Rfam assigns this 89-nucleotide RNA from Paenalicyclobacillus mengziensis to the family "c-di-GMP-I riboswitch aptamer".
[Rfam]
RNA sequence: AACUCGUAAAGGCAAACCUGCACGAAAGUCAGGGACGCAAUGUCACGUAUCUACGGACGAAAGGUGUCUAUGAGAUGGAGGUGACAGGA
Numbered sequence: 001a002a003c004u005c006g007u008a009a010a011g012g013c014a015a016a017c018c019u020g021c022a023c024g025a026a027a028g029u030c031a032g033g034g035a036c037g038c039a040a041u042g043u044c045a046c047g048u049a050u051c052u053a054c055g056g057a058c059g060a061a062a063g064g065u066g067u068c069u070a071u072g073a074g075a076u077g078g079a080g081g082u083g084a085c086a087g088g089a
Base pairs, nucleotide, nucleotide: 012038013037017033018032019031020030022029023028041083042082043081044080048077050073051072056068057067058066059065